[Rfam]
RNA sequence: GCUGGGAGUAGUGGCGCACUCCUGUAAUUCCAGUGACUGGAAGGCAAUGGUGUGAUGGAUGGGUAGUAGUCGGGGGUUCUGGGCUUUGGUGUACUCUAUGUCGAAGGGGUGUCCGCACUAAGCUCUGCGUCAAUAUGGGGGUGUGGGGGGAGCCCUACCCCUCCAGGUUGACUAACGAGGAGCGUAUAGGCCCAGGGCGGAGACGCAGCAGGCAAAAGUUCCCGCGUUGAGCAGUAGUGGGUUCGCGCCCCUGAAUAGGCAUCACAGUCCAGCCCGACUCACUUCUCCGGACACACACUUUU
Numbered sequence: 001g002c003u004g005g006g007a008g009u010a011g012u013g014g015c016g017c018a019c020u021c022c023u024g025u026a027a028u029u030c031c032a033g034u035g036a037c038u039g040g041a042a043g044g045c046a047a048u049g050g051u052g053u054g055a056u057g058g059a060u061g062g063g064u065a066g067u068a069g070u071c072g073g074g075g076g077u078u079c080u081g082g083g084c085u086u087u088g089g090u091g092u093a094c095u096c097u098a099u100g101u102c103g104a105a106g107g108g109g110u111g112u113c114c115g116c117a118c119u120a121a122g123c124u125c126u127g128c129g130u131c132a133a134u135a136u137g138g139g140g141g142u143g144u145g146g147g148g149g150g151a152g153c154c155c156u157a158c159c160c161c162u163c164c165a166g167g168u169u170g171a172c173u174a175a176c177g178a179g180g181a182g183c184g185u186a187u188a189g190g191c192c193c194a195g196g197g198c199g200g201a202g203a204c205g206c207a208g209c210a211g212g213c214a215a216a217a218g219u220u221c222c223c224g225c226g227u228u229g230a231g232c233a234g235u236a237g238u239g240g241g242u243u244c245g246c247g248c249c250c251c252u253g254a255a256u257a258g259g260c261a262u263c264a265c266a267g268u269c270c271a272g273c274c275c276g277a278c279u280c281a282c283u284u285c286u287c288c289g290g291a292c293a294c295a296c297a298c299u300u301u302u
Base pairs, nucleotide, nucleotide: 001045002044003043004023005022006021007020008019009018028042029041030040049299050298051297052296053295054294060289061288062287063286065284068279069278070277071276072275073274074273079272080271081270082269083268084267085266087264088263089262090261091260095259096258097257098256099255101253105252106251107250108249109248110247111246112245113241114240116239117238118237119236120235122232123231124230125229127227128226129225130224131170132169133168134167136165137164138163139162140161141160143158144157145156146155147154148153179222180221181220182219183218190213191212192211197206198205199204
Shown here is a 302-nucleotide RNA sequence from Medioppia subpectinata, a member of the family "Metazoan signal recognition particle RNA".
It is annotated as a non-coding RNA gene.
For this family Rfam cites "Towards the structure of the mammalian signal recognition particle" (Wild et al., Curr Opin Struct Biol, 2002).
The family's consensus secondary structure is taken from published work.
Rfam's curators write: The signal recognition particle (SRP) is a universally conserved ribonucleoprotein.
Gene Ontology terms of the family: SRP-dependent cotranslational protein targeting to membrane, signal sequence recognition and signal recognition particle, endoplasmic reticulum targeting.